[Rfam]
Shown here is a 113-nucleotide sequence from Nakamurella antarctica, a member of the family "Actinobacteria sRNA Ms_IGR-7". Rfam 15.1 lists 463 matches to the family in 194 species. A search with the family's covariance model found it, with a score of 48 bits. Pairs were carried over by alignment from the consensus structure. Rfam classes the family as a small RNA.
RNA sequence: CGGAAAGGUGCUCCUGAACUAGCGACGAUUUGGACCUAAGAGACCCUUAUUAUCGCAGAUCAGAGCACCUUUUCUUGAUCUGGACACGACCCGAUCAACCAAUUCGAUGAAAG
Numbered sequence: 001c002g003g004a005a006a007g008g009u010g011c012u013c014c015u016g017a018a019c020u021a022g023c024g025a026c027g028a029u030u031u032g033g034a035c036c037u038a039a040g041a042g043a044c045c046c047u048u049a050u051u052a053u054c055g056c057a058g059a060u061c062a063g064a065g066c067a068c069c070u071u072u073u074c075u076u077g078a079u080c081u082g083g084a085c086a087c088g089a090c091c092c093g094a095u096c097a098a099c100c101a102a103u104u105c106g107a108u109g110a111a112a113g
Stems, first nucleotide, its partner, number of pairs: 002074012015062003019058002022056003027051003033045001105113001